[Rfam]
Bacterial RNase P class A: a 351-nucleotide sequence from Gloeobacter kilaueensis. NCBI's taxonomy places the organism under Bacteria, Bacillati, Cyanophyceae, Gloeobacteraceae, Gloeobacter kilaueensis.
RNA sequence: GGAGUUGGCGCGGUGGUCGCGGGCCGGGCAACCGGCCUGAGGAAAGUCCGGGCUCCCCAACGAGCGGAUUGCUGGGUAACGCCCAGUGCGCGCGAGCGUGAGGAUAGUGCCACAGAAACAUACCGCCGAUGGGAGUGGCAACACUCCACAGGCAAGGGUGCAAAGGUGCGGUAAGAGCGCACCAGCGACAUCGAGAGGUGUCGGCUCGGUAAACCCCGUCCUGAGCAAGGCGGGGGACAGAUGGGUUGCUCGUUGACCGUCCCCCAAAAGCCGCUUGAGGCGUCAGGCAACUGGCGUCCCAGACAGAUGACCGCCCUUCGAACAGAACCCGGCUUACGUCCGGCUCCUCCA
Numbered sequence: 001g002g003a004g005u006u007g008g009c010g011c012g013g014u015g016g017u018c019g020c021g022g023g024c025c026g027g028g029c030a031a032c033c034g035g036c037c038u039g040a041g042g043a044a045a046g047u048c049c050g051g052g053c054u055c056c057c058c059a060a061c062g063a064g065c066g067g068a069u070u071g072c073u074g075g076g077u078a079a080c081g082c083c084c085a086g087u088g089c090g091c092g093c094g095a096g097c098g099u100g101a102g103g104a105u106a107g108u109g110c111c112a113c114a115g116a117a118a119c120a121u122a123c124c125g126c127c128g129a130u131g132g133g134a135g136u137g138g139c140a141a142c143a144c145u146c147c148a149c150a151g152g153c154a155a156g157g158g159u160g161c162a163a164a165g166g167u168g169c170g171g172u173a174a175g176a177g178c179g180c181a182c183c184a185g186c187g188a189c190a191u192c193g194a195g196a197g198g199u200g201u202c203g204g205c206u207c208g209g210u211a212a213a214c215c216c217c218g219u220c221c222u223g224a225g226c227a228a229g230g231c232g233g234g235g236g237a238c239a240g241a242u243g244g245g246u247u248g249c250u251c252g253u254u255g256a257c258c259g260u261c262c263c264c265c266a267a268a269a270g271c272c273g274c275u276u277g278a279g280g281c282g283u284c285a286g287g288c289a290a291c292u293g294g295c296g297u298c299c300c301a302g303a304c305a306g307a308u309g310a311c312c313g314c315c316c317u318u319c320g321a322a323c324a325g326a327a328c329c330c331g332g333c334u335u336a337c338g339u340c341c342g343g344c345u346c347c348u349c350c351a
Stems, first nucleotide, its partner, number of pairs: 001347008010337001012315007020039008044335003048332005053225003062253001064251001067221001070218002072086005087101001088099004102216002107214002109210003123157002125153003130148004165183006185205001186203007229272003233264006244258005279298008
The literature on the family includes a 2013 paper in RNA Biol by Beauregard et al., "Identification and characterization of small RNAs in Yersinia pestis".